Shown here is a 187-nucleotide sequence from Streptomyces sp. WM4235, a member of the family "c-di-AMP riboswitch aptamer (ydaO/yuaA leader)".

Nucleotides: 187
Stems, first nucleotide, its partner, number of pairs: 005033002035169006045086001087154003095131001097129004134148004
Number, partner (000 for none) and nucleotide at each position: 001000g002000a003000a004000c005033c006032c007000c008000a009000c010000c011000c012000g013000a014000c015000u016000a017000u018000u019000c020000a021000c022000g023000c024000g025000c026000g027000c028000g029000g030000c031000a032006g033005g034000a035169g036168c037167g038166g039165g040164g041000g042000a043000a044000c045086c046000a047000g048000g049000u050000a051000a052000g053000c054000c055000g056000c057000c058000g059000u060000u061000c062000c063000g064000g065000g066000c067000c068000u069000c070000g071000u072000c073000u074000c075000c076000g077000g078000g079000a080000c081000g082000g083000c084000u085000a086045g087154g088153g089152g090000u091000g092000a093000a094000g095131c096000a097129g098128c099127g100126c101000u102000u103000c104000g105000g106000c107000c108000g109000u110000c111000g112000u113000c114000a115000c116000c117000g118000a119000c120000g121000c122000c123000g124000a125000u126100g127099c128098g129097c130000g131095g132000c133000c134148g135147g136146a137145c138000a139000u140000c141000u142000c143000c144000a145137g146136u147135c148134c149000g150000a151000a152089c153088c154087c155000g156000a157000c158000a159000g160000c161000u162000c163000a164040c165039c166038u167037c168036g169035c170000a171000g172000g173000c174000g175000u176000c177000g178000g179000a180000g181000a182000g183000g184000a185000a186000u187000u